The family of this 91-nucleotide RNA from Clostridiales bacterium KLE1615 is "c-di-GMP-I riboswitch aptamer". For this family Rfam cites "Riboswitches in Eubacteria Sense the Second Messenger Cyclic Di-GMP" (Sudarsan et al., Science, 2008). Lineage of the source: Bacteria > Bacillati > Bacillota > Clostridia > Eubacteriales. The match comes from Rfam's covariance-model search (75 bits).
RNA sequence: GAAAAUUAAAAGCAAACCUGCUGAAAAGCAGGGACGCAAAGCCAGAAGGGACUAAAGUCAGAAAGUUUGACCAUGUCAGCCGGUUGCCAUU
Numbered sequence: 001g002a003a004a005a006u007u008a009a010a011a012g013c014a015a016a017c018c019u020g021c022u023g024a025a026a027a028g029c030a031g032g033g034a035c036g037c038a039a040a041g042c043c044a045g046a047a048g049g050g051a052c053u054a055a056a057g058u059c060a061g062a063a064a065g066u067u068u069g070a071c072c073a074u075g076u077c078a079g080c081c082g083g084u085u086g087c088c089a090u091u
Base pairs, nucleotide, nucleotide: 012037013036017032018031019030020029021028022027040085041084042083043082048081049080050077051076052075057071058070059069060068061067062066